Record summary
Rfam assigns this 74-nucleotide sequence from Papillibacter cinnamivorans to the family "Fluoride riboswitch aptamer (crcB RNA motif)". Taxonomically the source falls in Papillibacter cinnamivorans (Bacteria, Bacillota, Clostridia, Oscillospiraceae). The family has 289 seed sequences and 2,293 matches in Rfam 15.1. Gene Ontology terms of the family: response to fluoride and positive regulation of gene expression. A reference for the family is Ren et al. (2012), "Fluoride ion encapsulation by Mg2+ ions and phosphates in a fluoride riboswitch", Nature. It scores 38 bits against the family's covariance model.
RNA sequence: CUCAAAUGCGGGAAUGAAGUUCUCCCCAGGCAAUGGCCUGAAGUGCCUUAACGGCUGAUGACUUCUGCAGCGUA
Numbered sequence: 001c002u003c004a005a006a007u008g009c010g011g012g013a014a015u016g017a018a019g020u021u022c023u024c025c026c027c028a029g030g031c032a033a034u035g036g037c038c039u040g041a042a043g044u045g046c047c048u049u050a051a052c053g054g055c056u057g058a059u060g061a062c063u064u065c066u067g068c069a070g071c072g073u074a
Stems, first nucleotide, its partner, number of pairs: 010026004016065006045055003